[Rfam]
RNA sequence: CAGCAUGAUUUCAAGGGCUAUGUCUGCUUGUGGCCAAGGGACUUCCUACUGCAUGCGACUGCAAUGUGGACAGGUACUGACAGCUUGGAUCAGCACCUUAUCUGCAACUUAAUGCACCUUUUUUAUAAAG
Numbered sequence: 001c002a003g004c005a006u007g008a009u010u011u012c013a014a015g016g017g018c019u020a021u022g023u024c025u026g027c028u029u030g031u032g033g034c035c036a037a038g039g040g041a042c043u044u045c046c047u048a049c050u051g052c053a054u055g056c057g058a059c060u061g062c063a064a065u066g067u068g069g070a071c072a073g074g075u076a077c078u079g080a081c082a083g084c085u086u087g088g089a090u091c092a093g094c095a096c097c098u099u100a101u102c103u104g105c106a107a108c109u110u111a112a113u114g115c116a117c118c119u120u121u122u123u124u125a126u127a128a129a130g
Stems, first nucleotide, its partner, number of pairs: 011039002016035007068123003072119002083110001086104004
A member of the RNA family "Small nucleolar RNA SNORA44" from Chinchilla lanigera, 130 nucleotides long. Rfam links the family to the GO terms RNA processing and nucleolus. Clan: SNORA44 clan. The family's consensus secondary structure was predicted with PFOLD. Rfam's curators write: ACA44 is a member of the H/ACA class of snoRNA that guide the sites of modification of uridines to pseudouridines.